[Rfam]
RNA sequence: UGAGAAAAUCUAGGUGAAGGAACUAGGCAAAAUAGUAUCGUAACUUUUGGAGAAGAUACACUAGAUUAUUUAAAAUUUUUUUUAAUUUUAAAGAACUAGUCUAAGAGAUAAGGUGGCUGCAACUGUUUAUUAAAAACACAGCACUCUGCUAACGUGUAAACGGAUGUAUAGGGUGUGACGCCUGCCCGGUGUUGGUAGGUUAAUUGAUUAUGUUAAUUUAAAAAUAAAGCAUUUGAUAAAAGCCCCAAUAAACGGCGGCCGUAACUAUAACGGUCCUAAGGUAGCGAAAUUCCUUGUCGGGUAAGUUCCGACCUGCACGAAUGGCGUAAUGAUGGCCACGCUGUCUCCAUCUAGAACUCA
Numbered sequence: 001u002g003a004g005a006a007a008a009u010c011u012a013g014g015u016g017a018a019g020g021a022a023c024u025a026g027g028c029a030a031a032a033u034a035g036u037a038u039c040g041u042a043a044c045u046u047u048u049g050g051a052g053a054a055g056a057u058a059c060a061c062u063a064g065a066u067u068a069u070u071u072a073a074a075a076u077u078u079u080u081u082u083u084a085a086u087u088u089u090a091a092a093g094a095a096c097u098a099g100u101c102u103a104a105g106a107g108a109u110a111a112g113g114u115g116g117c118u119g120c121a122a123c124u125g126u127u128u129a130u131u132a133a134a135a136a137c138a139c140a141g142c143a144c145u146c147u148g149c150u151a152a153c154g155u156g157u158a159a160a161c162g163g164a165u166g167u168a169u170a171g172g173g174u175g176u177g178a179c180g181c182c183u184g185c186c187c188g189g190u191g192u193u194g195g196u197a198g199g200u201u202a203a204u205u206g207a208u209u210a211u212g213u214u215a216a217u218u219u220a221a222a223a224a225u226a227a228a229g230c231a232u233u234u235g236a237u238a239a240a241a242g243c244c245c246c247a248a249u250a251a252a253c254g255g256c257g258g259c260c261g262u263a264a265c266u267a268u269a270a271c272g273g274u275c276c277u278a279a280g281g282u283a284g285c286g287a288a289a290u291u292c293c294u295u296g297u298c299g300g301g302u303a304a305g306u307u308c309c310g311a312c313c314u315g316c317a318c319g320a321a322u323g324g325c326g327u328a329a330u331g332a333u334g335g336c337c338a339c340g341c342u343g344u345c346u347c348c349a350u351c352u353a354g355a356a357c358u359c360a
Stems, first nucleotide, its partner, number of pairs: 001360004009355008018346003035059005044049001060100005079094006101105001113339007120331002124138003141176008149166001153162003179326004184256003189253002191249005198244003204238001210232004216225002257275006276280001286313001296312006
RNA: Bacterial large subunit ribosomal RNA, nucleotides 1555 to 1914
Organism: Candidatus Carsonella ruddii